[Rfam]
RNA sequence: AGCUUAGGUUGUUCGGCGUAUACCGCAACGUCCUGUUGCAUCGCCGAACUGAAUUACAUCCUGUAAU
Numbered sequence: 001a002g003c004u005u006a007g008g009u010u011g012u013u014c015g016g017c018g019u020a021u022a023c024c025g026c027a028a029c030g031u032c033c034u035g036u037u038g039c040a041u042c043g044c045c046g047a048a049c050u051g052a053a054u055u056a057c058a059u060c061c062u063g064u065a066a067u
Stems, first nucleotide, its partner, number of pairs: 011049007025039005053067005
This 67-nucleotide sequence from Gracilibacillus halotolerans belongs to the Rfam family "Bacillaceae-1 RNA". A search with the family's covariance model found it, with a score of 51 bits. By type it is a small RNA. The organism belongs to Gracilibacillus, within Bacteria.